[Rfam]
The family of this 389-nucleotide RNA sequence from Actinomyces sp. oral taxon 849 is "Bacterial RNase P class A". Pairs were carried over by alignment from the consensus structure, which is taken from published work. The organism belongs to Actinomyces sp. oral taxon 849, within Bacteria.
RNA sequence: CGAGCCGACCGGGCGGCCGCGGUACCUUAGUCGCCGUAAUGGCGGUCAGGGGCUGAGGAACGUCCGGGCUCCACAGAGCAGGGCGGUGGCUAACGGCCACCCGGGGUGACCCGCGGGACAGUGCCACAGAGAGCAGACCGCCCGCCGAUUCCGGCGGGUAAGGGUGAAAGGGUGGGGUAAGAGCCCACCAGCGCGACGGGUGACCGCCGCGGCUCGGUAAACCCCGCCCGGAGCAAGACCGCACAGCUGGCGCUUGAAGGCUGCUCGCCCGAGUCAGCGGGUAGGUCGCAUGAGGCCAUUGGUGACAAUGGUCCAAGAUGAAUGGUCGCCACCGUCAGGCCGGUAACGGCCGGCGGCAACAGAACCCGGCGUACAGGUCGGCUCGUCCC
Number, nucleotide and partner (000 for none) at each position: 001c385002g384003a383004g382005c381006c380007g379008a378009c377010c376011g374012g330013g329014c328015g327016g326017c325018c324019g000020c055021g054022g053023u052024a000025c050026c049027u048028u000029a000030g000031u000032c000033g000034c000035c000036g000037u000038a000039a000040u000041g000042g000043c000044g000045g000046u000047c000048a027049g026050g025051g000052g023053c022054u021055g020056a000057g000058g000059a000060a372061c371062g370063u000064c369065c368066g367067g366068g365069c233070u232071c231072c230073a000074c000075a000076g266077a265078g264079c263080a000081g229082g228083g227084c226085g225086g100087u099088g098089g097090c096091u000092a000093a000094c000095g000096g090097c089098c088099a087100c086101c115102c113103g112104g111105g110106g000107u000108g000109a000110c105111c104112c103113g102114c000115g101116g224117g223118a000119c000120a000121g222122u221123g218124c217125c216126a000127c000128a000129g000130a000131g000132a000133g000134c000135a000136g000137a000138c163139c162140g159141c158142c157143c156144g155145c154146c153147g152148a000149u000150u000151c000152c147153g146154g145155c144156g143157g142158g141159u140160a000161a000162g139163g138164g000165u000166g000167a000168a000169a000170g000171g189172g188173u187174g186175g185176g184177g000178u000179a000180a000181g000182a000183g000184c176185c175186c174187a173188c172189c171190a000191g213192c211193g210194c209195g208196a000197c206198g205199g204200g000201u000202g000203a000204c199205c198206g197207c000208c195209g194210c193211g192212g000213c191214u000215c000216g125217g124218u123219a000220a000221a122222c121223c117224c116225c085226g084227c083228c082229c081230g072231g071232a070233g069234c000235a000236a000237g287238a286239c285240c284241g000242c000243a000244c000245a000246g278247c277248u276249g275250g274251c273252g000253c000254u000255u000256g000257a000258a000259g269260g268261c267262u000263g079264c078265u077266c076267g261268c260269c259270c000271g000272a000273g251274u250275c249276a248277g247278c246279g000280g000281g000282u000283a000284g240285g239286u238287c237288g000289c000290a000291u000292g000293a000294g313295g312296c311297c310298a309299u308300u307301g306302g000303u000304g000305a000306c301307a300308a299309u298310g297311g296312u295313c294314c000315a000316a000317g000318a000319u000320g000321a000322a000323u000324g018325g017326u016327c015328g014329c013330c012331a000332c000333c000334g000335u000336c000337a000338g000339g000340c000341c000342g000343g000344u000345a000346a000347c000348g000349g000350c000351c000352g000353g000354c000355g000356g000357c000358a000359a000360c000361a000362g000363a000364a000365c068366c067367c066368g065369g064370c062371g061372u060373a000374c011375a000376g010377g009378u008379c007380g006381g005382c004383u003384c002385g001386u000387c000388c000389c000